[Rfam]
RNA sequence: GCCGGUCGUUCUUUCACUCGGAUCGUCCGGCACGUUCCUGCCGGUGAAAGGAAGCG
Numbered sequence: 001g002c003c004g005g006u007c008g009u010u011c012u013u014u015c016a017c018u019c020g021g022a023u024c025g026u027c028c029g030g031c032a033c034g035u036u037c038c039u040g041c042c043g044g045u046g047a048a049a050g051g052a053a054g055c056g
Stems, first nucleotide, its partner, number of pairs: 010051007027044006
The family of this 56-nucleotide sequence from Micromonospora krabiensis is "msiK RNA".
It scores 54 bits against the family's covariance model.
Rfam 15.1 lists 1,374 matches to the family in 1,364 species.
The family's consensus secondary structure is taken from published work.
Rfam classes the family as a cis-regulatory element.